[Rfam]
The family of this 50-nucleotide RNA from Amycolatopsis arida is "L31-Actinobacteria ribosomal protein leader". The family's RNA type in Rfam is cis-regulatory leader. The base pairs follow the family's consensus structure, which is taken from published work.
RNA sequence: CCGGCUCCGGUUCACCUGGUGGAACGCACGCCACGCAGGACCCGGCGGCC
Numbered sequence: 001c002c003g004g005c006u007c008c009g010g011u012u013c014a015c016c017u018g019g020u021g022g023a024a025c026g027c028a029c030g031c032c033a034c035g036c037a038g039g040a041c042c043c044g045g046c047g048g049c050c
Stems, first nucleotide, its partner, number of pairs: 003050003007045004015039004019034004